RNA sequence: GUGCCAUGAUGUUAAACUGUCAACACACCAUUCCGAAGAAUUGUGUGGAGACUUUAUGAACUGAGCACU
Numbered sequence: 001g002u003g004c005c006a007u008g009a010u011g012u013u014a015a016a017c018u019g020u021c022a023a024c025a026c027a028c029c030a031u032u033c034c035g036a037a038g039a040a041u042u043g044u045g046u047g048g049a050g051a052c053u054u055u056a057u058g059a060a061c062u063g064a065g066c067a068c069u
Base pairs, nucleotide, nucleotide: 001068002067003066004065

The family of this 69-nucleotide RNA from Myiagra hebetior is "Small nucleolar RNA SNORD63". A search with the family's covariance model found it, with a score of 53 bits. NCBI's taxonomy places the organism under Eukaryota, Eumetazoa, Archelosauria, Saurischia, Myiagra. Rfam describes the family as follows. snoRNA U63 is found in both humans and mice. The literature on the family includes a 2002 paper in Mol Cell Biol by Galardi et al., "Purified box C/D snoRNPs are able to reproduce site-specific 2'-O-methylation of target RNA in vitro". The family has 23 seed sequences and 795 matches in Rfam 15.1. Gene Ontology terms of the family: nucleolus and RNA processing.